[Rfam]
RNA sequence: UUGCAAUGUAGCAUACCCGAUUGGUGUUUAACUCUGAUUAAUAUCUGUUAUUUAAUUACUUUUGGGUAACGGGGUGUUACAGUUA
Numbered sequence: 001u002u003g004c005a006a007u008g009u010a011g012c013a014u015a016c017c018c019g020a021u022u023g024g025u026g027u028u029u030a031a032c033u034c035u036g037a038u039u040a041a042u043a044u045c046u047g048u049u050a051u052u053u054a055a056u057u058a059c060u061u062u063u064g065g066g067u068a069a070c071g072g073g074g075u076g077u078u079a080c081a082g083u084u085a
Stems, first nucleotide, its partner, number of pairs: 005083001007081008016073004021068001
RNA: MIR2617 microRNA precursor family
Organism: Medicago truncatula